Shown here is a 60-nucleotide RNA sequence from Actinomyces gaoshouyii, a member of the family "msiK RNA". The family has 120 seed sequences and 1,374 matches in Rfam 15.1. It is annotated as a cis-regulatory element.

RNA sequence: UCCCGGCACCUCUCCACCACGGAUCGUCCGGCACGUACCUGCCGGUGAAGGGAAUAACUC
Numbered sequence: 001u002c003c004c005g006g007c008a009c010c011u012c013u014c015c016a017c018c019a020c021g022g023a024u025c026g027u028c029c030g031g032c033a034c035g036u037a038c039c040u041g042c043c044g045g046u047g048a049a050g051g052g053a054a055u056a057a058c059u060c
Base pairs, nucleotide, nucleotide: 010052011051012050013049015047016046028045029044030043031042032041033040